[Rfam]
RNA: rne-II RNA
Organism: Pseudomonas corrugata
RNA sequence: AUACGUGUAGGGUGGAGAUGUACAACCGUCGGACUGUGUAGCACUAGGCUUGUUUCAGACGCUUCAUCUCGUCCACAGACGCCGGUUGAUUCCUCCUCCUGACUGAGUGCUUGAGUACCAGCAAGCAGGACGCGUCCGUCGCGACUUCGCCAUCAUUGGGCCGAACUCGCUGGACACUGGAGUGGUCAGCCACUUCCAUGACGCACCUGACACCGACCGUGAGAAGUCGUGUGUGCCGAACGCCGUUUCCGGCAGCCCGGAAACCGA
Numbered sequence: 001a002u003a004c005g006u007g008u009a010g011g012g013u014g015g016a017g018a019u020g021u022a023c024a025a026c027c028g029u030c031g032g033a034c035u036g037u038g039u040a041g042c043a044c045u046a047g048g049c050u051u052g053u054u055u056c057a058g059a060c061g062c063u064u065c066a067u068c069u070c071g072u073c074c075a076c077a078g079a080c081g082c083c084g085g086u087u088g089a090u091u092c093c094u095c096c097u098c099c100u101g102a103c104u105g106a107g108u109g110c111u112u113g114a115g116u117a118c119c120a121g122c123a124a125g126c127a128g129g130a131c132g133c134g135u136c137c138g139u140c141g142c143g144a145c146u147u148c149g150c151c152a153u154c155a156u157u158g159g160g161c162c163g164a165a166c167u168c169g170c171u172g173g174a175c176a177c178u179g180g181a182g183u184g185g186u187c188a189g190c191c192a193c194u195u196c197c198a199u200g201a202c203g204c205a206c207c208u209g210a211c212a213c214c215g216a217c218c219g220u221g222a223g224a225a226g227u228c229g230u231g232u233g234u235g236c237c238g239a240a241c242g243c244c245g246u247u248u249c250c251g252g253c254a255g256c257c258c259g260g261a262a263a264c265c266g267a
Stems, first nucleotide, its partner, number of pairs: 014096004023088006030081002036076003040050003058073004097130005133203004138175003141170004148163002151160001179196007210234004214229004245264007